[Rfam]
RNA sequence: GGGCUUAUGAUGAUAAUUUUAAUUAACUUAGCGGAUUUCAGUGAGACUCAUUUUGUGUCAGUGAUCUGAUUGUUACACACACUGAAGCCC
Numbered sequence: 001g002g003g004c005u006u007a008u009g010a011u012g013a014u015a016a017u018u019u020u021a022a023u024u025a026a027c028u029u030a031g032c033g034g035a036u037u038u039c040a041g042u043g044a045g046a047c048u049c050a051u052u053u054u055g056u057g058u059c060a061g062u063g064a065u066c067u068g069a070u071u072g073u074u075a076c077a078c079a080c081a082c083u084g085a086a087g088c089c090c
Stems, first nucleotide, its partner, number of pairs: 001090005
RNA: Small nucleolar RNA R11/Z151
Organism: Tripterygium wilfordii